[Rfam]
Rfam assigns this 83-nucleotide sequence from Papaver somniferum to the family "Small nucleolar RNA R38". A search with the family's covariance model found it, with a score of 64 bits. snoR38 is a C/D box small nucleolar RNA conserved across yeast, human, Arabidopsis and rice. It is encoded in the intron of elongation factor-1 gamma in both pombe and cerevisiae. snoR38 guides the methylation of 2'-O-ribose sites in 28S rRNA. It is annotated as a C/D-box small nucleolar RNA. Its family is annotated with RNA processing and nucleolus in the Gene Ontology.

RNA sequence: AUAUGUGGAUGAUGAGAAAAUUAAAACUAACAGUUAUCCCUGUCUUAGUAGCUGGUGCUGAUAAUGUUAAAUCUGACACAUAA
Number, nucleotide and partner (000 for none) at each position: 001a000002u082003a081004u080005g079006u078007g077008g000009a000010u000011g000012a000013u000014g000015a000016g000017a000018a000019a000020a000021u000022u000023a000024a000025a000026a000027c000028u000029a000030a000031c000032a000033g000034u000035u000036a000037u000038c000039c000040c000041u000042g000043u000044c000045u000046u000047a000048g000049u000050a000051g000052c000053u000054g000055g000056u000057g000058c000059u000060g000061a000062u000063a000064a000065u000066g000067u000068u000069a000070a000071a000072u000073c000074u000075g000076a000077c007078a006079c005080a004081u003082a002083a000